Shown here is a 94-nucleotide RNA sequence from Tetracentron sinense, a member of the family "Plastid-rps12 3UTR RNA". Rfam's curators write: Plastid rpl20 is a non-coding RNA (ncRNA) recognised in plastids. It was found in the three prime untranslated region (3UTR) of rps12 gene, its 3UTR location sugest a role in transcript maduration. The match comes from Rfam's covariance-model search (88 bits). The family has 1,299 seed sequences and 1,710 matches in Rfam 15.1. Lineage of the source: Eukaryota > Viridiplantae > Streptophyta > Mesangiospermae > Tetracentron. The literature on the family includes a 2023 paper in Plant Commun by Richter et al., "Retrograde signaling in plants: A critical review focusing on the GUN pathway and beyond".
RNA sequence: GGUUUUCCUUGGUGCAAAUCCAGUCACCUCAAUUUGAGAUGAGAAGCAAUUCCAUUGGUAGCAAAUGGAUAUCUAUUAAGUGGGGAAAUAUAGU
Dot-bracket structure: ........((((.......))))............................((((.((((.(.....).)))).)).....))...........